[Rfam]
RNA sequence: GGCUGGUCUGAGUGCAAUAGUAGUUACAACUAACUGAUCACAACCAGUUACAGAUUUAUCCUGCUCCACUCUCACUGCUUCACUUGACUAGCCUUUA
Numbered sequence: 001g002g003c004u005g006g007u008c009u010g011a012g013u014g015c016a017a018u019a020g021u022a023g024u025u026a027c028a029a030c031u032a033a034c035u036g037a038u039c040a041c042a043a044c045c046a047g048u049u050a051c052a053g054a055u056u057u058a059u060c061c062u063g064c065u066c067c068a069c070u071c072u073c074a075c076u077g078c079u080u081c082a083c084u085u086g087a088c089u090a091g092c093c094u095u096u097a
Base pairs, nucleotide, nucleotide: 001093002092003091004090005089006088007087008086010085011084014081016076018074020072023071029059032056033055
Dot-bracket structure: ((((((((.((..(.(.(.(..(.....(..((.....................))..)...........)).).)....)..))))))))))....

Rfam assigns this 97-nucleotide RNA sequence from Theropithecus gelada to the family "Y RNA".
The family has 104 seed sequences and 26,986 matches in Rfam 15.1.
On this family, see Teunissen et al., Nucleic Acids Res 2000: "Conserved features of Y RNAs: a comparison of experimentally derived secondary structures".